[Rfam]
RNA sequence: AAUUGUCCGUCGGGGUGCCUAGUUGAAUUAGGCUGAGAGAUGUAUUUCAUUAACCCGGUGAACCUGAUCCGAUUAGUAUCGGCGUAGGGAACGGAUGCGAUGUUAUG
Numbered sequence: 001a002a003u004u005g006u007c008c009g010u011c012g013g014g015g016u017g018c019c020u021a022g023u024u025g026a027a028u029u030a031g032g033c034u035g036a037g038a039g040a041u042g043u044a045u046u047u048c049a050u051u052a053a054c055c056c057g058g059u060g061a062a063c064c065u066g067a068u069c070c071g072a073u074u075a076g077u078a079u080c081g082g083c084g085u086a087g088g089g090a091a092c093g094g095a096u097g098c099g100a101u102g103u104u105a106u107g
Stems, first nucleotide, its partner, number of pairs: 006095005011057004017033005040050003063088004069082004
RNA: TPP riboswitch aptamer (THI element)
Organism: Marinomonas ushuaiensis